[Rfam]
RNA sequence: AACUCGAUAGUAUGGUAGAAAAAAAUAUGAAUCUUUCUACAUACUAUCUAUAUCUAUUAUUAUAAUGUAGAAAGAUACAAGC
Numbered sequence: 001a002a003c004u005c006g007a008u009a010g011u012a013u014g015g016u017a018g019a020a021a022a023a024a025a026u027a028u029g030a031a032u033c034u035u036u037c038u039a040c041a042u043a044c045u046a047u048c049u050a051u052a053u054c055u056a057u058u059a060u061u062a063u064a065a066u067g068u069a070g071a072a073a074g075a076u077a078c079a080a081g082c
Stems, first nucleotide, its partner, number of pairs: 006048009016039006023032001
Shown here is an 82-nucleotide RNA from Gossypium aridum, a member of the family "Plastid-psbM 3UTR RNA". Plastid psbM is a non-coding RNA (ncRNA) recognised in plastids. By type it is a cis-regulatory element. The family's consensus secondary structure was predicted with LocARNA. NCBI's taxonomy places the organism under Eukaryota, Euphyllophyta, Gunneridae, rosids, Gossypium.